Description: Shown here is a 215-nucleotide RNA sequence from Thiohalomonas denitrificans, a member of the family "Group II catalytic intron D1-D4-6". Rfam links the family to the GO term Group II intron splicing. A search with the family's covariance model found it, with a score of 103 bits. About the family: Group II introns are found in rRNA, tRNA and mRNA of organelles in fungi, plants and protists, and also in mRNA in bacteria. Pairs were carried over by alignment from the consensus structure.

Nucleotides: 215
Base pairs, nucleotide, nucleotide: 011035012034013033014032019029020028022183023182024181025180038087039086042084043083044082045081046079047078048074049073050072051071052070054068055067057066058065059064108209109206111205112204113203115202116201128200129199130198131197132196133195134159135158136157139154140153141152142151164194165193166192168190169188170187171186172185173184
Number, partner (000 for none) and nucleotide at each position: 001000c002000g003000a004000a005000u006000c007000c008000c009000g010000c011035a012034u013033g014032g015000c016000a017000g018000a019029g020028c021000c022183u023182a024181a025180c026000c027000a028020g029019c030000a031000g032014c033013c034012a035011u036000a037000a038087g039086c040000g041000a042084g043083u044082c045081u046079u047078g048074c049073g050072u051071c052070g053000g054068g055067u056000u057066g058065g059064g060000g061000c062000a063000a064059c065058c066057c067055a068054c069000a070052c071051g072050g073049c074048g075000a076000a077000g078047c079046g080000u081045a082044g083043a084042u085000a086039g087038c088000g089000a090000a091000c092000c093000u094000g095000a096000a097000a098000g099000c100000a101000g102000u103000g104000c105000u106000a107000u108209u109206g110000a111205a112204c113203u114000u115202c116201g117000c118000a119000a120000u121000u122000u123000a124000c125000a126000u127000c128200g129199c130198a131197g132196a133195c134159g135158c136157c137000u138000u139154u140153g141152c142151u143000u144000u145000a146000a147000c148000c149000c150000a151142g152141g153140c154139g155000g156000g157136g158135g159134c160000c161000g162000c163000g164194u165193u166192g167000a168190u169188g170187u171186g172185g173184c174000g175000u176000a177000u178000c179000g180025g181024u182023u183022a184173g185172c186171c187170a188169c189000g190168g191000g192166c193165a194164a195133g196132u197131c198130u199129g200128c201116c202115g203113a204112g205111u206109c207000g208000c209108g210000g211000g212000a213000a214000c215000a